Bacterial RNase P class A: a 390-nucleotide sequence from Keratinibaculum paraultunense. Rfam classes the family as a ribozyme. The organism belongs to Keratinibaculum, within Bacteria.
[Rfam]
RNA sequence: UGAGUAAAUCGGAUGAUCGCGUGCAGUUGGCAUGAGGAAAGUCCGUGCUCCAUAGGGCAGGAUGCUGGAUAACGUCCAGUGGGGGUGACCCUAAGGCUAGUGCAACAGAAAUAUACCGCCAGAUCCUUGCUUGAUUAUUUACCAAGCUUGUGGUGGAAUAACCUUUUAAUAAGGUAUCUGGUAAGGGUGGAAAGGUGAGGUAAGAGCUCACCAGCGAUUAGGCGACUAAUCGGCUCUGUAAACCCCAUCCGGAGCAAGACCAAAAGGGAACACAAAUAAACAGUGACCCGCUGUUGUUCCAAAGGUAGGUCGCAGGAAUCCAUUGGCAACAAUGGAUCAUAGAUAGAUGAUCAUCCAAGACAGAACACGGCUUAUAGAUUUACUCAUUUA
Numbered sequence: 001u002g003a004g005u006a007a008a009u010c011g012g013a014u015g016a017u018c019g020c021g022u023g024c025a026g027u028u029g030g031c032a033u034g035a036g037g038a039a040a041g042u043c044c045g046u047g048c049u050c051c052a053u054a055g056g057g058c059a060g061g062a063u064g065c066u067g068g069a070u071a072a073c074g075u076c077c078a079g080u081g082g083g084g085g086u087g088a089c090c091c092u093a094a095g096g097c098u099a100g101u102g103c104a105a106c107a108g109a110a111a112u113a114u115a116c117c118g119c120c121a122g123a124u125c126c127u128u129g130c131u132u133g134a135u136u137a138u139u140u141a142c143c144a145a146g147c148u149u150g151u152g153g154u155g156g157a158a159u160a161a162c163c164u165u166u167u168a169a170u171a172a173g174g175u176a177u178c179u180g181g182u183a184a185g186g187g188u189g190g191a192a193a194g195g196u197g198a199g200g201u202a203a204g205a206g207c208u209c210a211c212c213a214g215c216g217a218u219u220a221g222g223c224g225a226c227u228a229a230u231c232g233g234c235u236c237u238g239u240a241a242a243c244c245c246c247a248u249c250c251g252g253a254g255c256a257a258g259a260c261c262a263a264a265a266g267g268g269a270a271c272a273c274a275a276a277u278a279a280a281c282a283g284u285g286a287c288c289c290g291c292u293g294u295u296g297u298u299c300c301a302a303a304g305g306u307a308g309g310u311c312g313c314a315g316g317a318a319u320c321c322a323u324u325g326g327c328a329a330c331a332a333u334g335g336a337u338c339a340u341a342g343a344u345a346g347a348u349g350a351u352c353a354u355c356c357a358a359g360a361c362a363g364a365a366c367a368c369g370g371c372u373u374a375u376a377g378a379u380u381u382a383c384u385c386a387u388u389u390a
Base pairs, nucleotide, nucleotide: 001386002385003384004383005382006381007380008379009378010377011375012355013354014353015352016351017350018349020034021033022032023031024030039373040372041371043370044369045368046367047366048254049253050252051251055289056288057287060250061249062248063247064246065079066078067077068076069075080094081092082091083090084089095245096244100243101242102239103238104237116186117185118182119181120180121179122178123177124176126174127173128172194212195211196210197209198208199207214234215232216231217230218229219228220227221226258311259310260309261308267300268298270297271296280294281293282292283291284290318337319336320335321334322333323332324331325330